[Rfam]
RNA sequence: UCAGGCUAUGAUUGUCCAAACGCAAUUCUUGUCUCAACGAUAGGAAAUCAAGAAUUGUGUGGGGACAUCAGCGCUUGG
Number, nucleotide and partner (000 for none) at each position: 001u000002c077003a076004g075005g074006c073007u000008a000009u070010g069011a068012u067013u000014g066015u065016c064017c063018a000019a000020a000021c059022g058023c057024a056025a055026u054027u053028c052029u051030u050031g049032u000033c000034u000035c000036a000037a000038c000039g000040a000041u000042a000043g000044g000045a000046a000047a000048u000049c031050a030051a029052g028053a027054a026055u025056u024057g023058u022059g021060u000061g000062g000063g017064g016065a015066c014067a012068u011069c010070a009071g000072c000073g006074c005075u004076u003077g002078g000

The record is a 78-nucleotide sequence from Neodiprion lecontei, which matches "mir-219 microRNA precursor family" in Rfam. The family has 92 seed sequences and 1,318 matches in Rfam 15.1. The base pairs follow the family's consensus structure, which was predicted with RNAalifold.